Shown here is a 74-nucleotide sequence from Drosophila willistoni, a member of the family "Small nucleolar RNA CD11". It is annotated as a C/D-box small nucleolar RNA. Gene Ontology terms of the family: RNA processing and nucleolus. Taxonomically the source falls in Sophophora (Eukaryota, Bilateria, Panarthropoda, Eumetabola). On this family, see Huang et al., RNA 2005: "Genome-wide analyses of two families of snoRNA genes from Drosophila melanogaster, demonstrating the extensive utilization of introns for coding of snoRNAs".
[Rfam]
RNA sequence: UUUUCCGUGAUGAUUGAUUGGAGCAGAAGAGUUCUUGAAGACUAUAUUCAUCACCCAAUGCUGAACAAAACUAU
Numbered sequence: 001u002u003u004u005c006c007g008u009g010a011u012g013a014u015u016g017a018u019u020g021g022a023g024c025a026g027a028a029g030a031g032u033u034c035u036u037g038a039a040g041a042c043u044a045u046a047u048u049c050a051u052c053a054c055c056c057a058a059u060g061c062u063g064a065a066c067a068a069a070a071c072u073a074u
Base pairs, nucleotide, nucleotide: 001070002069003068026034027033028032